RNA sequence: CCCGCGGGACGGCUCGCGGGCAUGCUCCCACUCGAGGACGGCCUC
Numbered sequence: 001c002c003c004g005c006g007g008g009a010c011g012g013c014u015c016g017c018g019g020g021c022a023u024g025c026u027c028c029c030a031c032u033c034g035a036g037g038a039c040g041g042c043c044u045c
Stems, first nucleotide, its partner, number of pairs: 001020008034045004
Shown here is a 45-nucleotide sequence from Pseudoclavibacter chungangensis, a member of the family "Guanidine-II riboswitch aptamer (mini-ykkC)". Its family is annotated with regulation of gene expression in the Gene Ontology. The literature on the family includes a 2007 paper in Nucleic Acids Res by Weinberg et al., "Identification of 22 candidate structured RNAs in bacteria using the CMfinder comparative genomics pipeline". The match comes from Rfam's covariance-model search (32 bits).